A member of the RNA family "Small nucleolar RNA SNORD87" from Anas platyrhynchos, 83 nucleotides long. For this family Rfam cites "U87 RNA, a novel C/D box small nucleolar RNA from mammalian cells" (Gogolevskaya et al., Gene, 2002). Its family is annotated with RNA processing and nucleolus in the Gene Ontology.

RNA sequence: ACUGGCAUAAUGAUGAAAUAAUGAUUUGCCGUUUACCCAUCUGACUGGUUAUUGAUGUGUAUCUUUAUAUCUGAAAUGCCAGU
Numbered sequence: 001a002c003u004g005g006c007a008u009a010a011u012g013a014u015g016a017a018a019u020a021a022u023g024a025u026u027u028g029c030c031g032u033u034u035a036c037c038c039a040u041c042u043g044a045c046u047g048g049u050u051a052u053u054g055a056u057g058u059g060u061a062u063c064u065u066u067a068u069a070u071c072u073g074a075a076a077u078g079c080c081a082g083u
Stems, first nucleotide, its partner, number of pairs: 001083007
It scores 56 bits against the family's covariance model. The family has 10 seed sequences and 539 matches in Rfam 15.1.